Background:
Rfam assigns this 56-nucleotide RNA sequence from Aeromicrobium sp. IC_218 to the family "msiK RNA". A search with the family's covariance model found it, with a score of 42 bits. The organism belongs to Aeromicrobium, within Bacteria. Rfam classes the family as a cis-regulatory element.
[Rfam]
RNA sequence: GGGUGGCUCCACCACUCGGAUCGUCCGGCACGUUCCUGCCGGUGGAAAGGAGCCUU
Numbered sequence: 001g002g003g004u005g006g007c008u009c010c011a012c013c014a015c016u017c018g019g020a021u022c023g024u025c026c027g028g029c030a031c032g033u034u035c036c037u038g039c040c041g042g043u044g045g046a047a048a049g050g051a052g053c054c055u056u
Base pairs, nucleotide, nucleotide: 008049012045013044014043025042026041027040028039029038030037